[Rfam]
Bacterial large signal recognition particle RNA: a 265-nucleotide RNA sequence from Clostridium magnum. The source organism's lineage runs through Bacteria, Clostridia, Clostridiaceae, Clostridium and Clostridium magnum. It is annotated as a non-coding RNA gene.
RNA sequence: UCGUGCUAGAUGGGGAGCUAGCGGUGCCCUGUAACCUGCAAUCCGCUACAGCAGGGUUGAAUUCCCUCUAUCGGCUUUAGUCUGUUGGGUCUGCCUGAUCAAAGUGGUAUUGAGAAUUGGGUCCCAUGCGGCAGAAACUCAUGAACUCCGUCAGAUCCGGAAGGAAGCAGCGGUAAGUGAUCACUUCUGAGUGCCGUGGAUUAACCUGGUUUGAGCUAACUUGAUCUGUAACGCCAGUAGAGUACUGCCAACAGAGGGUGCACGA
Numbered sequence: 001u002c003g004u005g006c007u008a009g010a011u012g013g014g015g016a017g018c019u020a021g022c023g024g025u026g027c028c029c030u031g032u033a034a035c036c037u038g039c040a041a042u043c044c045g046c047u048a049c050a051g052c053a054g055g056g057u058u059g060a061a062u063u064c065c066c067u068c069u070a071u072c073g074g075c076u077u078u079a080g081u082c083u084g085u086u087g088g089g090u091c092u093g094c095c096u097g098a099u100c101a102a103a104g105u106g107g108u109a110u111u112g113a114g115a116a117u118u119g120g121g122u123c124c125c126a127u128g129c130g131g132c133a134g135a136a137a138c139u140c141a142u143g144a145a146c147u148c149c150g151u152c153a154g155a156u157c158c159g160g161a162a163g164g165a166a167g168c169a170g171c172g173g174u175a176a177g178u179g180a181u182c183a184c185u186u187c188u189g190a191g192u193g194c195c196g197u198g199g200a201u202u203a204a205c206c207u208g209g210u211u212u213g214a215g216c217u218a219a220c221u222u223g224a225u226c227u228g229u230a231a232c233g234c235c236a237g238u239a240g241a242g243u244a245c246u247g248c249c250a251a252c253a254g255a256g257g258g259u260g261c262a263c264g265a
Stems, first nucleotide, its partner, number of pairs: 001265006009058003012030004017025003035055005064258006073249003079243001081241008092230002097226005104220002106217003114212009124199005129191001132189005139180004148173004156165003
The match comes from Rfam's covariance-model search (199 bits).